Shown here is a 71-nucleotide RNA sequence from Meiothermus ruber, a member of the family "c-di-GMP-II-GAG riboswitch aptamer".

RNA sequence: GAGAGGUGAUGACCUCCAGUCCCCCACACGGGCGCCAUGGGGAUGGAGGUAGCCAGUGGCGCGACCGGCUC
Number, nucleotide and partner (000 for none) at each position: 001g071002a070003g069004a000005g054006g053007u052008g000009a000010u000011g000012a000013c000014c048015u047016c046017c045018a000019g044020u043021c042022c041023c000024c000025c000026a000027c000028a000029c000030g066031g065032g062033c061034g060035c059036c058037a000038u000039g000040g000041g022042g021043a020044u019045g017046g016047a015048g014049g000050u000051a000052g007053c006054c005055a000056g000057u000058g036059g035060c034061g033062c032063g000064a000065c031066c030067g000068g000069c003070u002071c001
Source information: The sequence is in the family's curated seed alignment.